This 65-nucleotide RNA sequence from Culex quinquefasciatus belongs to the Rfam family "mir-932 microRNA precursor family". Rfam's curators put it in the seed alignment. The organism belongs to Culex pipiens complex, within Eukaryota. A reference for the family is Ruby et al. (2007), "Evolution, biogenesis, expression, and target predictions of a substantially expanded set of Drosophila microRNAs", Genome Res. Pairs were carried over by alignment from the consensus structure, which was predicted with RNAalifold.
RNA sequence: GCUUCAAUUCCGUAGUGCAUUGCAGUGUAUUUUUUCACCUACUGCAAGCAAUGUGGAAGUGAAGC
Numbered sequence: 001g002c003u004u005c006a007a008u009u010c011c012g013u014a015g016u017g018c019a020u021u022g023c024a025g026u027g028u029a030u031u032u033u034u035u036c037a038c039c040u041a042c043u044g045c046a047a048g049c050a051a052u053g054u055g056g057a058a059g060u061g062a063a064g065c
Stems, first nucleotide, its partner, number of pairs: 002064005009057005016050003020047005